RNA sequence: UCCCUUUCGCAAUGGAGAUUCCGGUGCGGAAAUUGAUGGCUGCUCUUAUAGCAAGCCUGAUAGGGCUAAUGGCGCUGUCCGUGACGACCACGGCUGUCGCAUGCGGUGACUCCACGAGCUACUCCGAUGGCAAGUGAGCCCGACGCCCGAAGGCGCUGCGUGCGCAAGACAAAAGGCCCUCAUCCGACGAUGAGGGCCUUUUACA
Number, nucleotide and partner (000 for none) at each position: 001u000002c000003c035004c000005u031006u030007u029008c028009g027010c026011a000012a000013u023014g022015g020016a000017g000018a000019u000020u015021c000022c014023g013024g000025u000026g010027c009028g008029g007030a006031a005032a000033u000034u000035g003036a000037u000038g057039g056040c055041u053042g052043c051044u050045c000046u000047u000048a000049u000050a044051g043052c042053a041054a000055g040056c039057c038058u000059g000060a000061u000062a000063g148064g147065g146066c145067u000068a000069a000070u000071g000072g100073c099074g098075c096076u000077g000078u000079c093080c092081g091082u090083g089084a000085c000086g000087a000088c000089c083090a082091c081092g080093g079094c000095u000096g075097u000098c074099g073100c072101a000102u000103g000104c000105g000106g141107u000108g000109a000110c138111u137112c136113c000114a000115c000116g131117a000118g000119c000120u000121a000122c000123u000124c000125c000126g000127a000128u000129g000130g000131c116132a000133a000134g000135u000136g112137a111138g110139c000140c000141c106142g000143a000144c000145g066146c065147c064148c063149g000150a000151a000152g000153g165154c164155g163156c162157u000158g000159c000160g000161u000162g156163c155164g154165c153166a000167a000168g000169a000170c000171a202172a201173a200174a199175g198176g197177c196178c195179c194180u193181c192182a191183u190184c189185c000186g000187a000188c000189g184190a183191u182192g181193a180194g179195g178196g177197c176198c175199u174200u173201u172202u171203a000204c000205a000
The family of this 205-nucleotide RNA sequence from Trinickia terrae is "Burkholderia sRNA 11". A reference for the family is Sass et al. (2017), "Identification of small RNAs abundant in Burkholderia cenocepacia biofilms reveal putative regulators with a potential role in carbon and iron metabolism", Sci Rep. It scores 131 bits against the family's covariance model. Gene Ontology term of the family: bacterial biofilm matrix. Pairs were carried over by alignment from the consensus structure, which was predicted with RNAfold.